[Rfam]
RNA sequence: GGCCUAAAGCAUCCGUAGCUGGCCAGGUUAGUCCCCUGUUAAACCCACCGAAUUAAUCGUUGGAUUGCGGGGGAUACUGCCAGGCUAGGGGACGAGAGAGGCAGACGGUAUUUUCGGGGUAGGGGUGAAAUCCUAUAAUCCCGGGAAGACCACCAGUGGCGAAGGCUGUCUGCUAGAACGCGCCCGACGGUGAGGGAUGAAAGCUGGGGGAGCGAACCGGAUUAGAUACCCGGGUAGUCCCAGCUGUAAACGAUGCAGGCUAGGUGUUUGGGCGGCCACGUGCCGCUCUAGUGCCGCAGGGAAGCUGUUAAGCCUGCCGCCUGGGGAGUACGGUCGCAAGAUUGAAACUUAAAGGAAU
Numbered sequence: 001g002g003c004c005u006a007a008a009g010c011a012u013c014c015g016u017a018g019c020u021g022g023c024c025a026g027g028u029u030a031g032u033c034c035c036c037u038g039u040u041a042a043a044c045c046c047a048c049c050g051a052a053u054u055a056a057u058c059g060u061u062g063g064a065u066u067g068c069g070g071g072g073g074a075u076a077c078u079g080c081c082a083g084g085c086u087a088g089g090g091g092a093c094g095a096g097a098g099a100g101g102c103a104g105a106c107g108g109u110a111u112u113u114u115c116g117g118g119g120u121a122g123g124g125g126u127g128a129a130a131u132c133c134u135a136u137a138a139u140c141c142c143g144g145g146a147a148g149a150c151c152a153c154c155a156g157u158g159g160c161g162a163a164g165g166c167u168g169u170c171u172g173c174u175a176g177a178a179c180g181c182g183c184c185c186g187a188c189g190g191u192g193a194g195g196g197a198u199g200a201a202a203g204c205u206g207g208g209g210g211a212g213c214g215a216a217c218c219g220g221a222u223u224a225g226a227u228a229c230c231c232g233g234g235u236a237g238u239c240c241c242a243g244c245u246g247u248a249a250a251c252g253a254u255g256c257a258g259g260c261u262a263g264g265u266g267u268u269u270g271g272g273c274g275g276c277c278a279c280g281u282g283c284c285g286c287u288c289u290a291g292u293g294c295c296g297c298a299g300g301g302a303a304g305c306u307g308u309u310a311a312g313c314c315u316g317c318c319g320c321c322u323g324g325g326g327a328g329u330a331c332g333g334u335c336g337c338a339a340g341a342u343u344g345a346a347a348c349u350u351a352a353a354g355g356a357a358u
Base pairs, nucleotide, nucleotide: 001321002320003319009318011198012197013196014195016192018191019190020189022085023084024083026081027080028079030078031077032074033073034072035071036070037069038068039067045063046062047061049059050058051057089185090184091183093180094179100174101173102172103171104170105169106168107151108150111147112146113145114144115143116142117141118140122133123132124131156167159166160165203244204243205242206241207240208239212238213237217233218232219231220230255317256316257315258314259313260312263295264294265293266292267291268290270288271287272286273285274284275283276282299306300305323350324349325348332343333342334341335340